[Rfam]
RNA sequence: GCCAAUGCUUUAUAUAAAUGAGAGAUUUGGUUAGUUAUUCCAGUCUCCAACGGUAAAGGUACAUUGCAAGGUACACUUACCGUUUACAUA
Number, nucleotide and partner (000 for none) at each position: 001g000002c000003c000004a000005a000006u000007g000008c000009u000010u000011u000012a000013u000014a000015u000016a000017a000018a000019u000020g000021a000022g047023a046024g045025a044026u043027u000028u000029g000030g000031u000032u000033a000034g000035u000036u000037a000038u000039u000040c000041c000042a000043g026044u025045c024046u023047c022048c000049a084050a083051c082052g081053g080054u079055a078056a077057a000058g000059g074060u073061a072062c071063a000064u000065u000066g000067c000068a000069a000070g000071g062072u061073a060074c059075a000076c000077u056078u055079a054080c053081c052082g051083u050084u049085u000086a000087c000088a000089u000090a000
The family of this 90-nucleotide sequence is "COG2827 RNA".
The family's consensus secondary structure is taken from published work.
The sequence is in the family's curated seed alignment.
It is annotated as a small RNA.